[Rfam]
RNA sequence: AAGGUUACUUAUUGUAAGUCGCUUUGGACAAAAGCAUCUGCUAAAUGCCCCAAA
Numbered sequence: 001a002a003g004g005u006u007a008c009u010u011a012u013u014g015u016a017a018g019u020c021g022c023u024u025u026g027g028a029c030a031a032a033a034g035c036a037u038c039u040g041c042u043a044a045a046u047g048c049c050c051c052a053a054a
Base pairs, nucleotide, nucleotide: 013043014041015040016039021035022034023033024032025031
Shown here is a 54-nucleotide RNA sequence from Sparus aurata, a member of the family "UnaL2 LINE 3' element". Rfam links the family to the GO term transposition, RNA-mediated. The organism belongs to Sparus, within Eukaryota. The family's consensus secondary structure is taken from published work. A search with the family's covariance model found it, with a score of 57 bits. Rfam 15.1 lists 493,311 matches to the family in 99 species. On this family, see Baba et al., RNA 2004: "Solution structure of an RNA stem-loop derived from the 3' conserved region of eel LINE UnaL2". The family's RNA type in Rfam is cis-regulatory element.